[Rfam]
RNA sequence: ACGAGACGGGUGGUAAGGCGGUGAAGCGCGACCGAUAAACUGUUUCACGGACGACGCCGGGCGCAGCUCCCGUCCCGUCCGCCAAUGAUCAGCCAGCAGCCGCUGCAACCACAGGGAG
Numbered sequence: 001a002c003g004a005g006a007c008g009g010g011u012g013g014u015a016a017g018g019c020g021g022u023g024a025a026g027c028g029c030g031a032c033c034g035a036u037a038a039a040c041u042g043u044u045u046c047a048c049g050g051a052c053g054a055c056g057c058c059g060g061g062c063g064c065a066g067c068u069c070c071c072g073u074c075c076c077g078u079c080c081g082c083c084a085a086u087g088a089u090c091a092g093c094c095a096g097c098a099g100c101c102g103c104u105g106c107a108a109c110c111a112c113a114g115g116g117a118g
Base pairs, nucleotide, nucleotide: 049080050079051078052077053076058072059071060070061069094105095104096103097102
RNA: Streptomyces-metK RNA
Organism: Streptomyces minutiscleroticus